Description:
Rfam assigns this 151-nucleotide RNA from Nocardioides flavescens to the family "c-di-AMP riboswitch aptamer (ydaO/yuaA leader)". The source organism's lineage runs through Bacteria, Actinomycetes, Propionibacteriales, Nocardioidaceae and Nocardioides.

[Rfam]
RNA sequence: UCGAGUCCGGGGCCGUCCGCGGUCCUGGAGCCGGGGAACCACGUUCCACCUGGGGUGAAUCCCCCGCGAGGCGCCGAUGGCGAGGAGCUGGGGUAGGGCAUGUCGUGUCCGAACCCGUCAGCUCACCCGGUAGGCGUACGACAACCAAGGA
Numbered sequence: 001u002c003g004a005g006u007c008c009g010g011g012g013c014c015g016u017c018c019g020c021g022g023u024c025c026u027g028g029a030g031c032c033g034g035g036g037a038a039c040c041a042c043g044u045u046c047c048a049c050c051u052g053g054g055g056u057g058a059a060u061c062c063c064c065c066g067c068g069a070g071g072c073g074c075c076g077a078u079g080g081c082g083a084g085g086a087g088c089u090g091g092g093g094u095a096g097g098g099c100a101u102g103u104c105g106u107g108u109c110c111g112a113a114c115c116c117g118u119c120a121g122c123u124c125a126c127c128c129g130g131u132a133g134g135c136g137u138a139c140g141a142c143a144a145c146c147a148a149g150g151a
Base pairs, nucleotide, nucleotide: 001134002133006029007028008027009026010025011024012023013022014021015020030131031130032129033128034127035126040052041051053116054115055114061093062092063091064090096110097109098108099107
Dot-bracket structure: ((...((((((((((....))))))))))((((((....((.........))(((.....((((.........................))))..((((.......))))...))).........)))))).)).................